[Rfam]
RNA sequence: AAUUCUGUUCGUAAGACCAAAGAGAAGCGAUCUAUUCAUCCUCGAUAAGUACCAAUACGCAAUGGAG
Numbered sequence: 001a002a003u004u005c006u007g008u009u010c011g012u013a014a015g016a017c018c019a020a021a022g023a024g025a026a027g028c029g030a031u032c033u034a035u036u037c038a039u040c041c042u043c044g045a046u047a048a049g050u051a052c053c054a055a056u057a058c059g060c061a062a063u064g065g066a067g
Stems, first nucleotide, its partner, number of pairs: 003022002006019002009016002042065002049058003

Background:
The family of this 67-nucleotide RNA from Musa balbisiana is "Plastid-clpP 5UTR RNA". Lineage of the source: Eukaryota > Embryophyta > Mesangiospermae > Zingiberales > Musa. The match comes from Rfam's covariance-model search (66 bits). The family has 343 seed sequences and 2,105 matches in Rfam 15.1. Plastid clpP is a non-coding RNA (ncRNA) recognised in plastids. It was found in the prime untranslated region (5UTR) of a protease complex subunit (clpP) in plastids, suggesting a posible cis-regulatory function. It is annotated as a cis-regulatory element. The literature on the family includes a 2023 paper in Plant Commun by Richter et al., "Retrograde signaling in plants: A critical review focusing on the GUN pathway and beyond".